c-di-AMP riboswitch aptamer (ydaO/yuaA leader): a 132-nucleotide sequence from Acetivibrio straminisolvens. Lineage of the source: Bacteria > Bacillati > Bacillota > Acetivibrionales > Acetivibrio straminisolvens.

RNA sequence: ACAUUAUUAGCUCGGAAUGCCUUUGGGCAGUGGGGAACCCAUCUUUCAGGGGUAAAUCUUAAAUUAUUAAUAAGGGAUACUUGGAAGUCCUAACCCGUCAACUAACUUCAUAGGAGUACACCAUGCGUAUAA
Numbered sequence: 001a002c003a004u005u006a007u008u009a010g011c012u013c014g015g016a017a018u019g020c021c022u023u024u025g026g027g028c029a030g031u032g033g034g035g036a037a038c039c040c041a042u043c044u045u046u047c048a049g050g051g052g053u054a055a056a057u058c059u060u061a062a063a064u065u066a067u068u069a070a071u072a073a074g075g076g077a078u079a080c081u082u083g084g085a086a087g088u089c090c091u092a093a094c095c096c097g098u099c100a101a102c103u104a105a106c107u108u109c110a111u112a113g114g115a116g117u118a119c120a121c122c123a124u125g126c127g128u129a130u131a132a
Stems, first nucleotide, its partner, number of pairs: 011116003018029003030111006040049001050096003059070003074090003
The family has 106 seed sequences and 7,607 matches in Rfam 15.1.